RNA sequence: GAUAGGUCUCUGCCGCUACUGUGAUUGGACACUGACGCAGAGUCAACUAGCCUUGUUGAGGCGGUUCUUCGCGCGUUGAACGGGGAACCGGUGACGGUCCGAGCCAUGAGGGGGGAGGCUCGGACCGUCCGCA
Dot-bracket structure: (.(((....))).)((((..(((......)))((((.....))))..)))).........((((....))))...(.............)..(((((((((((((.(......)..)))))))))))))....

This 133-nucleotide RNA belongs to the Rfam family "Streptomyces RNA 3920".
Pairs were carried over by alignment from the consensus structure.
Rfam describes the family as follows. Identified by deep sequencing of transcriptome at the end of exponential growth phase. Sequencing size consistent with northern blot size.
For this family Rfam cites "Deep sequencing-based identification of small non-coding RNAs in Streptomyces coelicolor" (Vockenhuber et al., RNA Biol, 2011).